[Rfam]
RNA sequence: UAAAGGCGCUUUUUGAGUAGCUUAGUUUGUCGAUAUCAGGCAUAAUGCCCUACAACGUAGCGGUGUAUCAUGAUUGACAAGGAUUUUUGCGUCAAAAAAAUACUUAUCAAUCAUGCGACACUAUAAUCGCUAUCCCAUAAUUAAAUUAGGGAAUGGGACUCUUCACCGAGGUUGUAAAAUGAGACAAACGAUUUUAGCUGUAU
Numbered sequence: 001u002a003a004a005g006g007c008g009c010u011u012u013u014u015g016a017g018u019a020g021c022u023u024a025g026u027u028u029g030u031c032g033a034u035a036u037c038a039g040g041c042a043u044a045a046u047g048c049c050c051u052a053c054a055a056c057g058u059a060g061c062g063g064u065g066u067a068u069c070a071u072g073a074u075u076g077a078c079a080a081g082g083a084u085u086u087u088u089g090c091g092u093c094a095a096a097a098a099a100a101u102a103c104u105u106a107u108c109a110a111u112c113a114u115g116c117g118a119c120a121c122u123a124u125a126a127u128c129g130c131u132a133u134c135c136c137a138u139a140a141u142u143a144a145a146u147u148a149g150g151g152a153a154u155g156g157g158a159c160u161c162u163u164c165a166c167c168g169a170g171g172u173u174g175u176a177a178a179a180u181g182a183g184a185c186a187a188a189c190g191a192u193u194u195u196a197g198c199u200g201u202a203u
Stems, first nucleotide, its partner, number of pairs: 015203001017201006025189007039049004051176006058132005063121004069115003073111005079105003133158006141152002159170003
Source information:
A member of the RNA family "Acinetobacter sRNA 11" from Acinetobacter indicus, 203 nucleotides long. The source organism's lineage runs through Bacteria, Pseudomonadota, Moraxellaceae, Acinetobacter and Acinetobacter indicus. It is annotated as a small RNA.